Rfam assigns this 104-nucleotide RNA sequence from Fibrella rubiginis to the family "Bacteroidales small SRP". A search with the family's covariance model found it, with a score of 77 bits. A reference for the family is Ryan et al. (2020), "A high-resolution transcriptome map identifies small RNA regulation of metabolism in the gut microbe Bacteroides thetaiotaomicron", Nat Commun. By type it is a non-coding RNA gene. Rfam links the family to the GO terms SRP-dependent cotranslational protein targeting to membrane, signal sequence recognition and signal recognition particle, plasma membrane targeting.
RNA sequence: UUUGCAUCGGCAAAUCGGUGCUACCAGCUCCUGCUGAAUCCCCCAGGUCCUGACGGAAGCAAGGGUAGGUGGUCGUAGCGGUGAGACAUUCGGUUUGCCAUUUU
Number, nucleotide and partner (000 for none) at each position: 001u000002u000003u000004g000005c000006a000007u000008c000009g099010g098011c097012a096013a095014a094015u093016c000017g000018g089019u088020g087021c085022u084023a082024c081025c000026a000027g000028c000029u000030c000031c000032u000033g000034c000035u000036g000037a000038a000039u000040c000041c000042c000043c000044c000045a000046g000047g000048u000049c000050c000051u000052g000053a000054c000055g000056g000057a000058a000059g000060c000061a000062a000063g000064g000065g000066u000067a000068g000069g000070u000071g000072g000073u000074c000075g000076u000077a000078g000079c000080g000081g024082u023083g000084a022085g021086a000087c020088a019089u018090u000091c000092g000093g015094u014095u013096u012097g011098c010099c009100a000101u000102u000103u000104u000